[Rfam]
RNA sequence: UGACGAGCGUUUCAACAACAGAGAUACUCAUACAAAUGUCGUAAAAUAAUAUUAACCGUAAUCUAAGUACGGGAGCUCUGUUGGGCACCUAUUUUAAUUAAUAGGUGUUUUUUUUUAUU
Numbered sequence: 001u002g003a004c005g006a007g008c009g010u011u012u013c014a015a016c017a018a019c020a021g022a023g024a025u026a027c028u029c030a031u032a033c034a035a036a037u038g039u040c041g042u043a044a045a046a047u048a049a050u051a052u053u054a055a056c057c058g059u060a061a062u063c064u065a066a067g068u069a070c071g072g073g074a075g076c077u078c079u080g081u082u083g084g085g086c087a088c089c090u091a092u093u094u095u096a097a098u099u100a101a102u103a104g105g106u107g108u109u110u111u112u113u114u115u116u117a118u119u
Base pairs, nucleotide, nucleotide: 016083017082018081019080020079021078027075028074029073030052031051032050056072057071058070059069060068084109085108086107087106088105089104090103091102092101093100
Dot-bracket structure: ...............((((((.....((((((.................)))...(((((.......))))))))..))))))((((((((((......))))))))))..........

A member of the RNA family "DUF3800-I RNA" from Staphylococcus phage vB_SsapH-Golestan-105-M, 119 nucleotides long. The match comes from Rfam's covariance-model search (44 bits). By type it is a small RNA. Actinobacteria, Firmicutes, Fusobacteria, Proteobacteria (1 example), Tenericutes (2 examples).